[Rfam]
RNA: DUF805b RNA
Organism: Niastella vici
Nucleotides: 037
Base pairs, nucleotide, nucleotide: 002021003020004019005018010036011035012034
Number, partner (000 for none) and nucleotide at each position: 001000a002021g003020u004019g005018g006000g007000g008000a009000a010036g011035c012034c013000g014000a015000a016000a017000a018005c019004c020003a021002c022000u023000a024000a025000a026000a027000a028000a029000g030000a031000g032000u033000a034012g035011g036010c037000g